The record is an 89-nucleotide RNA sequence from Cognatiyoonia koreensis, which matches "Rhodo-rpoB RNA" in Rfam. By type it is a cis-regulatory element. The source organism's lineage runs through Bacteria, Pseudomonadota, Alphaproteobacteria, Paracoccaceae and Cognatiyoonia. It scores 54 bits against the family's covariance model.
[Rfam]
RNA sequence: AUUUCGGGAGAGAUGUUUGGGAAACAUCUCAGGUAUUGAAAUGACCCUGCCAGUAUUCGGACGCGUUUUGGUAUCCCAGCCAAAGCGCG
Numbered sequence: 001a002u003u004u005c006g007g008g009a010g011a012g013a014u015g016u017u018u019g020g021g022a023a024a025c026a027u028c029u030c031a032g033g034u035a036u037u038g039a040a041a042u043g044a045c046c047c048u049g050c051c052a053g054u055a056u057u058c059g060g061a062c063g064c065g066u067u068u069u070g071g072u073a074u075c076c077c078a079g080c081c082a083a084a085g086c087g088c089g
Base pairs, nucleotide, nucleotide: 001042002041003040004039005038010030011029012028013027014026015025016024062089063088064087065086066085067084068083069082070081071080